The record is a 123-nucleotide RNA from Anaerovirgula multivorans, which matches "Glycine riboswitch aptamer" in Rfam. A search with the family's covariance model found it, with a score of 55 bits. About the family: This family represents the bacterial glycine riboswitch. Glycine riboswitches usually consist of two metabolite-binding aptamers domains with similar structures in tandem.
[Rfam]
RNA sequence: AAGAAGGAUGCGGGAGAGACUCAAUAGUUUAAAGAAAUUAAACUUAUUGGGCGCCGAAGGAGGAAGCUAAGAAAUUCGCCAUUUUUUAGUGAAUAUCUCAGGCAAAAGGACCGUGUUUGGACA
Numbered sequence: 001a002a003g004a005a006g007g008a009u010g011c012g013g014g015a016g017a018g019a020c021u022c023a024a025u026a027g028u029u030u031a032a033a034g035a036a037a038u039u040a041a042a043c044u045u046a047u048u049g050g051g052c053g054c055c056g057a058a059g060g061a062g063g064a065a066g067c068u069a070a071g072a073a074a075u076u077c078g079c080c081a082u083u084u085u086u087u088a089g090u091g092a093a094u095a096u097c098u099c100a101g102g103c104a105a106a107a108g109g110a111c112c113g114u115g116u117u118u119g120g121a122c123a
Stems, first nucleotide, its partner, number of pairs: 006118008020051008053103003056099002060097002066090010